[Rfam]
RNA sequence: GCGGCCGGGCGCCCCACUCACGCCCCGGAACUGUGACGGGGUGAGGAAACUCCGCACACCCCGUGGCAGUGCGGCCCCGUAAGGGGCACGGGCAGUCCCCGUGGCUACGGCACAGAAACGGUACGGCCACCACUGGAUGGCGGUGAAGACGGCCGAGCCCCGGUGACGGGGUUGCCAAGCCGUUGAGGACGGUGGUGGAGGCGUUGAAACGGCCGUCCCGCAUGGUGCAAGGCCCGGUCCCGGUGUGAGGGCCACGCGACCGGUGUGGGCCGCAUAGACAAAUGUGGGGUGAACAGAAUGCGGGUUACGGCCCGGCCGC
Numbered sequence: 001g002c003g004g005c006c007g008g009g010c011g012c013c014c015c016a017c018u019c020a021c022g023c024c025c026c027g028g029a030a031c032u033g034u035g036a037c038g039g040g041g042u043g044a045g046g047a048a049a050c051u052c053c054g055c056a057c058a059c060c061c062c063g064u065g066g067c068a069g070u071g072c073g074g075c076c077c078c079g080u081a082a083g084g085g086g087c088a089c090g091g092g093c094a095g096u097c098c099c100c101g102u103g104g105c106u107a108c109g110g111c112a113c114a115g116a117a118a119c120g121g122u123a124c125g126g127c128c129a130c131c132a133c134u135g136g137a138u139g140g141c142g143g144u145g146a147a148g149a150c151g152g153c154c155g156a157g158c159c160c161c162g163g164u165g166a167c168g169g170g171g172u173u174g175c176c177a178a179g180c181c182g183u184u185g186a187g188g189a190c191g192g193u194g195g196u197g198g199a200g201g202c203g204u205u206g207a208a209a210c211g212g213c214c215g216u217c218c219c220g221c222a223u224g225g226u227g228c229a230a231g232g233c234c235c236g237g238u239c240c241c242g243g244u245g246u247g248a249g250g251g252c253c254a255c256g257c258g259a260c261c262g263g264u265g266u267g268g269g270c271c272g273c274a275u276a277g278a279c280a281a282a283u284g285u286g287g288g289g290u291g292a293a294c295a296g297a298a299u300g301c302g303g304g305u306u307a308c309g310g311c312c313c314g315g316c317c318g319c
Base pairs, nucleotide, nucleotide: 001319002318003317005315006314007313008312009311010309011308012289013288014287015286016285017284021043022042023041024040025039026038027037048306049305050304052303053302054301055300056299057227058226059225060224063253067249069223070222071221072220073219074087075086076085077084078083088102089101090100091099092098103218104217108215109214110213111212124203125202127198128197129196130195131194132193133192134191149183150182151181152180153179231271232270233269234268235262236261237260238259239258
A member of the RNA family "Archaeal RNase P" from Desulfurococcus mucosus, 319 nucleotides long. Rfam's curators write: Ribonuclease P (RNase P) is a ubiquitous endoribonuclease, found in archaea, bacteria and eukarya as well as chloroplasts and mitochondria. Its best characterised activity is the generation of mature 5'-ends of tRNAs by cleaving the 5'-leader elements of precursor-tRNAs. Cellular RNase Ps are ribonucleoproteins. The match comes from Rfam's covariance-model search (164 bits). Its Rfam clan is "RNaseP clan". It is annotated as a ribozyme. Rfam links the family to the GO terms ribonuclease P activity, tRNA processing and multimeric ribonuclease P complex.